[Rfam]
RNA: mir-122 microRNA precursor family
Organism: Rattus norvegicus
RNA sequence: AGUAGCUGUUUAGUGUGAUGAUGGCGUUUGAUGUUUUGGACACAAACACCAUUGUCACACUCCAGAGCUCUGC
Number, nucleotide and partner (000 for none) at each position: 001a000002g000003u000004a000005g000006c000007u000008g000009u000010u000011u000012a061013g060014u059015g058016u057017g056018a055019u000020g053021a052022u051023g050024g049025c000026g047027u046028u045029u044030g043031a000032u000033g000034u000035u000036u000037u000038g000039g000040a000041c000042a000043c030044a029045a028046a027047c026048a000049c024050c023051a022052u021053u020054g000055u018056c017057a016058c015059a014060c013061u012062c000063c000064a000065g000066a000067g000068c000069u000070c000071u000072g000073c000